The family of this 73-nucleotide sequence from Sporosarcina limicola is "Group II catalytic intron D1-D4-1". The organism belongs to Sporosarcina, within Bacteria. A search with the family's covariance model found it, with a score of 54 bits. On this family, see Bonen and Vogel, Trends Genet 2001: "The ins and outs of group II introns".
[Rfam]
RNA sequence: AAACUCGGUUGAAAAAGAUUUAUCGUGAGAAGUCAGCAGACGUCAUAGUAGUUUCCUUUCGGAAAUGAAGGAC
Numbered sequence: 001a002a003a004c005u006c007g008g009u010u011g012a013a014a015a016a017g018a019u020u021u022a023u024c025g026u027g028a029g030a031a032g033u034c035a036g037c038a039g040a041c042g043u044c045a046u047a048g049u050a051g052u053u054u055c056c057u058u059u060c061g062g063a064a065a066u067g068a069a070g071g072a073c
Stems, first nucleotide, its partner, number of pairs: 001020002004017002010015001032041003042073003051066006